[Rfam]
RNA: Metazoan signal recognition particle RNA
Organism: Chironomus riparius
RNA sequence: ACUGGAGGUGUGGCGUCCUCUGUAAUCCCAGCUUCUGGGAGGUUGGUUUAUGAGGUUGAUUUGAGGUUGGGAGCACUGCUUAUUGAUCGGGCAUGUUGACGGUUUGUCCGCGGUAAGCUUGUCAUCAACAUAGGUAGUUUUGCGGAGGCUUGACUAUCUAGGUUGCUAAGGAGAAGGGCACCGGACUAGAAUCGUAAGAGAGCAGUCAAAACUUUCCGUGGCGAUGCAGUAUCGCGGAUGGCGAACCAGAGUGAUUCCGCCAAUAACAGCCCAAUCAAUACAAUCACACCGUAAACUUU
Dot-bracket structure: ((((((((........)))))....(((.........)))))).((((((((....(((((...(((((((....(((.(((((...(((((((.(....(((((((((.(((((.(((((((((((((.(((((((((..((....))..))))))))).))))(...)..(((((......(((.....((....)).....)))....))))).))))))).))..))))).))...))))))).).)))..))))..))))))))))))))).....)))))...))))))))..